[Rfam]
Nucleotides: 071
Base pairs, nucleotide, nucleotide: 012067015064016061017060019058020057021056022055023054024053025052026051027050028049029048
Number, partner (000 for none) and nucleotide at each position: 001000u002000g003000c004000c005000g006000a007000a008000g009000u010000u011000u012067u013000c014000c015064u016061c017060g018000a019058u020057a021056g022055u023054u024053a025052a026051c027050u028049g029048c030000a031000g032000c033000c034000g035000g036000u037000u038000c039000c040000a041000u042000a043000a044000u045000u046000c047000g048029g049028c050027a051026g052025u053024u054023a055022a056021c057020u058019g059000c060017u061016g062000a063000c064015a065000g066000u067012g068000g069000c070000g071000g